[Rfam]
About this RNA:
The record is a 50-nucleotide RNA from Sulfitobacter brevis, which matches "SAM/SAH riboswitch aptamer" in Rfam. A reference for the family is Weickhmann et al. (2019), "The structure of the SAM/SAH-binding riboswitch", Nucleic Acids Res. It scores 57 bits against the family's covariance model. Pairs were carried over by alignment from the consensus structure, which is taken from published work. Taxonomically the source falls in Sulfitobacter (Bacteria, Pseudomonadota, Rhodobacterales, Roseobacteraceae).
RNA sequence: GACUGACCACAACGGCUUCCUGACGUGGUGAGAUUAUUUUGAAUGGAGCA
Numbered sequence: 001g002a003c004u005g006a007c008c009a010c011a012a013c014g015g016c017u018u019c020c021u022g023a024c025g026u027g028g029u030g031a032g033a034u035u036a037u038u039u040u041g042a043a044u045g046g047a048g049c050a
Stems, first nucleotide, its partner, number of pairs: 004031001006029005013022002015049003019046002